[Rfam]
RNA sequence: CAAAUCACGGGUGAUGGGGUUCCACCUUUAACCGCUCAAAGUCUUUUUGAGAUGAUGGCUCCUGCUAGGUG
Numbered sequence: 001c002a003a004a005u006c007a008c009g010g011g012u013g014a015u016g017g018g019g020u021u022c023c024a025c026c027u028u029u030a031a032c033c034g035c036u037c038a039a040a041g042u043c044u045u046u047u048u049g050a051g052a053u054g055a056u057g058g059c060u061c062c063u064g065c066u067a068g069g070u071g
Stems, first nucleotide, its partner, number of pairs: 010026004016062006035051007
Dot-bracket structure: .........[[[[..((((((.]]]]........(((((((...))))))).....)))))).........
A member of the RNA family "Fluoride riboswitch aptamer (crcB RNA motif)" from Vibrio rumoiensis, 71 nucleotides long.
The match comes from Rfam's covariance-model search (53 bits).